[Rfam]
Small nucleolar RNA snoR74: a 132-nucleotide sequence from Hibiscus syriacus.
RNA sequence: AAAAAAGCAGGUCCUUGUUGCCUUUUUUGAACUUGGUUCUCGUAAGCUUCAGGAAAAUUACUUGUGCAUUGUUCUUGGGUGAAUCUCUGGUUGUUACUGGUGCCUAAAGGUUCAGUAAAUAAUGCUACAUUU
Dot-bracket structure: ....(((...(..(..(..............)..)..)........)))................((((((((......(((((((.....................)))))))...)))))))).......
Taxonomically the source falls in Hibiscus (Eukaryota, Viridiplantae, Embryophyta, Spermatophyta). It is annotated as an H/ACA-box small nucleolar RNA.